The family of this 131-nucleotide RNA from Caenorhabditis japonica is "Nematode snoRNA ceN125". Rfam classes the family as an H/ACA-box small nucleolar RNA. A reference for the family is Jia et al. (2007), "Systematic identification of non-coding RNA 2,2,7-trimethylguanosine cap structures in Caenorhabditis elegans", BMC Mol Biol. Rfam 15.1 lists 17 matches to the family in 14 species. Lineage of the source: Eukaryota > Metazoa > Bilateria > Rhabditoidea > Caenorhabditis. Rfam links the family to the GO terms RNA processing and nucleolus. The sequence is in the family's curated seed alignment.
[Rfam]
RNA sequence: CCCACCCAUGGCAACAAAUUCCAGUCGCGUGUUUUGUCAACGCGAUUGAGCCGACGCCAUGGGAAAUCAAAUGCCCAUUUGAUCCCACUUUCGGCGAUUUUCGCCGACUGUGGUUUGCACGUGGUCCACAG
Numbered sequence: 001c002c003c004a005c006c007c008a009u010g011g012c013a014a015c016a017a018a019u020u021c022c023a024g025u026c027g028c029g030u031g032u033u034u035u036g037u038c039a040a041c042g043c044g045a046u047u048g049a050g051c052c053g054a055c056g057c058c059a060u061g062g063g064a065a066a067u068c069a070a071a072u073g074c075c076c077a078u079u080u081g082a083u084c085c086c087a088c089u090u091u092c093g094g095c096g097a098u099u100u101u102c103g104c105c106g107a108c109u110g111u112g113g114u115u116u117g118c119a120c121g122u123g124g125u126c127c128a129c130a131g
Stems, first nucleotide, its partner, number of pairs: 005063008022048009050055001075124004080119002082116001085113004091107005